[Rfam]
RNA: DUF805b RNA
RNA sequence: CCAGGGGUAACCGAAAACCUGUAUAAAAGAGUAGGAA
Numbered sequence: 001c002c003a004g005g006g007g008u009a010a011c012c013g014a015a016a017a018c019c020u021g022u023a024u025a026a027a028a029g030a031g032u033a034g035g036a037a
Stems, first nucleotide, its partner, number of pairs: 002021004011035002